This 100-nucleotide RNA from Cavia porcellus belongs to the Rfam family "Vault RNA". The base pairs follow the family's consensus structure, which is taken from published work. It is annotated as a non-coding RNA gene. Rfam's curators write: This family of RNAs are found as part of the enigmatic vault ribonucleoprotein complex. The complex consists of a major vault protein (MVP), two minor vault proteins (VPARP and TEP1), and several small untranslated RNA molecules. It has been suggested that the vault complex is involved in drug resistance. A reference for the family is Stadler et al. (2009), "Evolution of Vault RNAs", Mol Biol Evol.

[Rfam]
RNA sequence: GGGCUGGCUUUAGCCCAGCGGUUCCUUCAAGUCUGGCUUCCCACCAUCCAGGUCCAUUAGUCCGGUGGUUCGAGACCUGUGGGCGCUCUCCAGUCCUUAA
Numbered sequence: 001g002g003g004c005u006g007g008c009u010u011u012a013g014c015c016c017a018g019c020g021g022u023u024c025c026u027u028c029a030a031g032u033c034u035g036g037c038u039u040c041c042c043a044c045c046a047u048c049c050a051g052g053u054c055c056a057u058u059a060g061u062c063c064g065g066u067g068g069u070u071c072g073a074g075a076c077c078u079g080u081g082g083g084c085g086c087u088c089u090c091c092a093g094u095c096c097u098u099a100a
Base pairs, nucleotide, nucleotide: 002095003094004093005092006091007090013084014083015082016081018080019079020078021077026074027073028072030070